Rfam assigns this 36-nucleotide RNA sequence from Cnephaeus nilssonii to the family "Iron response element I". By type it is a cis-regulatory element. Rfam links the family to the GO term response to iron ion.

RNA sequence: UGGUUUCAUGCUUCAACAGUGCUUGGACAGAACCCG
Numbered sequence: 001u002g003g004u005u006u007c008a009u010g011c012u013u014c015a016a017c018a019g020u021g022c023u024u025g026g027a028c029a030g031a032a033c034c035c036g
Stems, first nucleotide, its partner, number of pairs: 001036003005032003010028001012027005017021001

For this family Rfam cites "Identification of the iron-responsive element for the translational regulation of human ferritin mRNA" (Hentze et al., Science, 1987). Pairs were carried over by alignment from the consensus structure, which is taken from published work. Taxonomically the source falls in Cnephaeus (Eukaryota, Deuterostomia, Teleostomi, Sarcopterygii).